[Rfam]
RNA sequence: ACGGGUGUGAUGAGUUUUUCCCCAGUUGAUCGAAGUUGAAAUAACUGAGCGCACUUUGUGUUUUCUCUCAAGGAGAAUUCCAAGCCAGAUAUUCUGAUCCGU
Numbered sequence: 001a002c003g004g005g006u007g008u009g010a011u012g013a014g015u016u017u018u019u020c021c022c023c024a025g026u027u028g029a030u031c032g033a034a035g036u037u038g039a040a041a042u043a044a045c046u047g048a049g050c051g052c053a054c055u056u057u058g059u060g061u062u063u064u065c066u067c068u069c070a071a072g073g074a075g076a077a078u079u080c081c082a083a084g085c086c087a088g089a090u091a092u093u094c095u096g097a098u099c100c101g102u
Stems, first nucleotide, its partner, number of pairs: 001102005

Notes:
Rfam assigns this 102-nucleotide sequence from Cuscuta europaea to the family "Small nucleolar RNA Z103". Gene Ontology terms of the family: nucleolus and RNA processing. The family's consensus secondary structure was predicted with PFOLD. A reference for the family is Chen et al. (2003), "The high diversity of snoRNAs in plants: identification and comparative study of 120 snoRNA genes from Oryza sativa", Nucleic Acids Res. NCBI's taxonomy places the organism under Eukaryota, Mesangiospermae, Gunneridae, Convolvulaceae, Cuscuta subgen. Cuscuta. Rfam 15.1 lists 2,844 matches to the family in 233 species.